Shown here is a 243-nucleotide RNA from Lingula anatina, a member of the family "Small nucleolar RNA SNORA73 family". From the family's description: U17 (SNORA73A and SNORA73B) also known as E1 belongs to the H/ACA class of small nucleolar RNAs (snoRNAs). Vertebrate U17 is intron-encoded and ranges in length from 200-230 nucleotides, longer than most snoRNAs. It is one of the most abundant snoRNAs in human cells and is essential for the cleavage of pre-rRNA within the 5' external transcribed spacer (ETS). This cleavage leads to the formation of 18S rRNA. Regions of the U17 RNA are complementary to rRNA and act as guides for RNA/RNA interactions, although these regions do not seem to be well conserved between organisms. A reference for the family is Cervelli et al. (2002), "Comparative Structure Analysis of Vertebrate U17 Small Nucleolar RNA (snoRNA)", J Mol Evol. By type it is an H/ACA-box small nucleolar RNA. The match comes from Rfam's covariance-model search (113 bits).
[Rfam]
RNA sequence: UCAACACUUGGUCAUCCAGGUGAGCUGGACUUGUUCUGGCUUUACUUGGCUCUGUCUUUGUGGCGUAUGGGAGCUGAAUACCCCCACAAGGGGUUUGAGGCAUAUUCCCUUUCCACAGUGUUGGAGAUCAACCAAGUCCCCAGUCCUCUGUGACUGGUGUGGACUGAACCUUGCAUAUUCCAUCAACUUUCUGUAGUCACUAGUUGACCUUGACAGAGGAGAAAGACCAUGCAAAGUACACUU
Numbered sequence: 001u002c003a004a005c006a007c008u009u010g011g012u013c014a015u016c017c018a019g020g021u022g023a024g025c026u027g028g029a030c031u032u033g034u035u036c037u038g039g040c041u042u043u044a045c046u047u048g049g050c051u052c053u054g055u056c057u058u059u060g061u062g063g064c065g066u067a068u069g070g071g072a073g074c075u076g077a078a079u080a081c082c083c084c085c086a087c088a089a090g091g092g093g094u095u096u097g098a099g100g101c102a103u104a105u106u107c108c109c110u111u112u113c114c115a116c117a118g119u120g121u122u123g124g125a126g127a128u129c130a131a132c133c134a135a136g137u138c139c140c141c142a143g144u145c146c147u148c149u150g151u152g153a154c155u156g157g158u159g160u161g162g163a164c165u166g167a168a169c170c171u172u173g174c175a176u177a178u179u180c181c182a183u184c185a186a187c188u189u190u191c192u193g194u195a196g197u198c199a200c201u202a203g204u205u206g207a208c209c210u211u212g213a214c215a216g217a218g219g220a221g222a223a224a225g226a227c228c229a230u231g232c233a234a235a236g237u238a239c240a241c242u243u
Stems, first nucleotide, its partner, number of pairs: 001124007010057002013054002016049009060116004069109004073103001075099001076096004171234006187221004192216001196208004